[Rfam]
RNA sequence: UUGUCUUUUCUUUGGUAAUACAGCUCUAUGAUUAAUAAUAGAAUCUCAUAAAGCUAGAUUACCAAAGCAAAGAACAA
Numbered sequence: 001u002u003g004u005c006u007u008u009u010c011u012u013u014g015g016u017a018a019u020a021c022a023g024c025u026c027u028a029u030g031a032u033u034a035a036u037a038a039u040a041g042a043a044u045c046u047c048a049u050a051a052a053g054c055u056a057g058a059u060u061a062c063c064a065a066a067g068c069a070a071a072g073a074a075c076a077a
Base pairs, nucleotide, nucleotide: 001077002076003075004074006071007070008069010067011066012065013064014063015062016061017060018059019058022055023054024053025052027050028049029048030047031046
Dot-bracket structure: ((((.(((.((((((((((..((((.(((((..............))))).))))..)))))))))).)))..))))